[Rfam]
RNA sequence: UGUUAAAUUUUUCAUCUAUUUGUAUUGUUAAAAACUGACGUUGCUGACGGAAUAUUCAGAUAAUGAUACGUGGCAUGCCAUAUGUACCUCAUGUUGAUGUAAGAACUAGUUUUUAACAAUAAAAUUGGAUGAAAUUUUUAAUA
Numbered sequence: 001u002g003u004u005a006a007a008u009u010u011u012u013c014a015u016c017u018a019u020u021u022g023u024a025u026u027g028u029u030a031a032a033a034a035c036u037g038a039c040g041u042u043g044c045u046g047a048c049g050g051a052a053u054a055u056u057c058a059g060a061u062a063a064u065g066a067u068a069c070g071u072g073g074c075a076u077g078c079c080a081u082a083u084g085u086a087c088c089u090c091a092u093g094u095u096g097a098u099g100u101a102a103g104a105a106c107u108a109g110u111u112u113u114u115a116a117c118a119a120u121a122a123a124a125u126u127g128g129a130u131g132a133a134a135u136u137u138u139u140a141a142u143a
Base pairs, nucleotide, nucleotide: 002142003141004140005139006138007137010134011133012132013131014130015129016128018126020124021123023121024120025119026118028116029115030114031113032112033111